[Rfam]
RNA: UnaL2 LINE 3' element
Organism: Clupea harengus
RNA sequence: UGUUCUCUCCUUUGUACGUCGCUUUGGACAAAAGCGUCUGCUAAAUGGCUAAAU
Numbered sequence: 001u002g003u004u005c006u007c008u009c010c011u012u013u014g015u016a017c018g019u020c021g022c023u024u025u026g027g028a029c030a031a032a033a034g035c036g037u038c039u040g041c042u043a044a045a046u047g048g049c050u051a052a053a054u
Base pairs, nucleotide, nucleotide: 013043014041015040016039020036021035022034023033024032025031